[Rfam]
RNA sequence: CAAUCUAUUUGAGGCAGAUCCUCAUUUAGUUCUGGCCGAUUCACACAUAACUUCUCAAAAUCACUCGUUAUUACAAGUCUGACUAUCAUUGACAUUGAAAAACAGAGAAAAACUAUUAUGUGAAUAUUGGCAAGCUGACUGGUUA
Numbered sequence: 001c002a003a004u005c006u007a008u009u010u011g012a013g014g015c016a017g018a019u020c021c022u023c024a025u026u027u028a029g030u031u032c033u034g035g036c037c038g039a040u041u042c043a044c045a046c047a048u049a050a051c052u053u054c055u056c057a058a059a060a061u062c063a064c065u066c067g068u069u070a071u072u073a074c075a076a077g078u079c080u081g082a083c084u085a086u087c088a089u090u091g092a093c094a095u096u097g098a099a100a101a102a103c104a105g106a107g108a109a110a111a112a113c114u115a116u117u118a119u120g121u122g123a124a125u126a127u128u129g130g131c132a133a134g135c136u137g138a139c140u141g142g143u144u145a
Stems, first nucleotide, its partner, number of pairs: 005142003008138002014131002018127002023120003027115005

The family of this 145-nucleotide sequence from Populus trichocarpa is "MIR480 microRNA precursor family". Taxonomically the source falls in Populus (Eukaryota, Streptophyta, Embryophyta, Salicaceae). The family has 69 seed sequences and 3,070 matches in Rfam 15.1. Its family is annotated with miRNA-mediated post-transcriptional gene silencing and RISC complex in the Gene Ontology.